[Rfam]
RNA sequence: UUGUCUGGUCAUGUAACAAAGCUCCUCCUGUCAUGUCGGUGAUAUGAGGACUCAUGACUAGACAUACAUUAACUCUGUCUGUUUAGGAGGGCUGCACACAGAAAAGUGCACAACCCUUAAAGGCGUGACAGUACAGU
Numbered sequence: 001u002u003g004u005c006u007g008g009u010c011a012u013g014u015a016a017c018a019a020a021g022c023u024c025c026u027c028c029u030g031u032c033a034u035g036u037c038g039g040u041g042a043u044a045u046g047a048g049g050a051c052u053c054a055u056g057a058c059u060a061g062a063c064a065u066a067c068a069u070u071a072a073c074u075c076u077g078u079c080u081g082u083u084u085a086g087g088a089g090g091g092c093u094g095c096a097c098a099c100a101g102a103a104a105a106g107u108g109c110a111c112a113a114c115c116c117u118u119a120a121a122g123g124c125g126u127g128a129c130a131g132u133a134c135a136g137u
Base pairs, nucleotide, nucleotide: 002064003063004062005061006060007059008058010056011055025049026048028046075131076130077129078128079127081124082123083122084121087118088117089116090115091114093112094109095108096107097106
A member of the RNA family "Small Cajal body specific RNA 11" from Eleutherodactylus coqui, 137 nucleotides long. The family's consensus secondary structure was predicted with RNAalifold. scaRNAs are a specific class of small nuclear RNAs which localise to the Cajal bodies and guide the modification of RNA polymerase II transcribed spliceosomal RNAs U1, U2, U4, U5 and U12. ACA57 belongs to the H/ACA box class of guide RNAs as it has the predicted hairpin-hinge-hairpin-tail structure, conserved H/ACA-box motifs and is found associated with GAR1. ACA57 is predicted to guide the pseudouridylation of the U5 spliceosomal RNA at position U43. A reference for the family is Darzacq et al. (2002), "Cajal body-specific small nuclear RNAs: a novel class of 2'-O-methylation and pseudouridylation guide RNAs", EMBO J.